[Rfam]
RNA sequence: GGGUGCCCGCCGCAUCGUGCGGUCGGCAGGUUCAUGCGCAGGUCGGGCCGCCGCG
Numbered sequence: 001g002g003g004u005g006c007c008c009g010c011c012g013c014a015u016c017g018u019g020c021g022g023u024c025g026g027c028a029g030g031u032u033c034a035u036g037c038g039c040a041g042g043u044c045g046g047g048c049c050g051c052c053g054c055g
Base pairs, nucleotide, nucleotide: 005027006026007025009023010022011021012020037055038054039053041052042051043050
Record summary
Shown here is a 55-nucleotide RNA from Rubrivivax sp., a member of the family "nhaA-I RNA". Rfam's curators write: Acidobacteria, Alphaproteobacteria, Betaproteobacteria and Gammaproteobacteria, Verrucomicrobia, cand. division NC10. Pairs were carried over by alignment from the consensus structure, which is taken from published work.